RNA sequence: GGUCAACGCAAGGAGGCAGACAUGGGACGUACAUACUCUCUGAAUGUCCUGGUAGUCGGUGUAGCGUUCGUGUUCGUGGCAUCUAUGCUGUUCAUCUGAACGCUACAGAUCCCACUACCCGGUCAUAAUUUUGCAUCCAUGACCGUUUGAUAUCAGCACUUCAAUUAGAACGCAUGCUCCUCUCGUAGAAGCAUGCGUU
Numbered sequence: 001g002g003u004c005a006a007c008g009c010a011a012g013g014a015g016g017c018a019g020a021c022a023u024g025g026g027a028c029g030u031a032c033a034u035a036c037u038c039u040c041u042g043a044a045u046g047u048c049c050u051g052g053u054a055g056u057c058g059g060u061g062u063a064g065c066g067u068u069c070g071u072g073u074u075c076g077u078g079g080c081a082u083c084u085a086u087g088c089u090g091u092u093c094a095u096c097u098g099a100a101c102g103c104u105a106c107a108g109a110u111c112c113c114a115c116u117a118c119c120c121g122g123u124c125a126u127a128a129u130u131u132u133g134c135a136u137c138c139a140u141g142a143c144c145g146u147u148u149g150a151u152a153u154c155a156g157c158a159c160u161u162c163a164a165u166u167a168g169a170a171c172g173c174a175u176g177c178u179c180c181u182c183u184c185g186u187a188g189a190a191g192c193a194u195g196c197g198u199u
Base pairs, nucleotide, nucleotide: 015048016047017046018045024040025039026038027037169199170198171197172196173195174194175193176192177191178190180188181187

A member of the RNA family "Rhizobiales sRNA Atu_C9" from Neorhizobium sp. S3-V5DH, 199 nucleotides long. By type it is a small RNA. Taxonomically the source falls in Neorhizobium (Bacteria, Alphaproteobacteria, Hyphomicrobiales, Rhizobiaceae). The match comes from Rfam's covariance-model search (102 bits).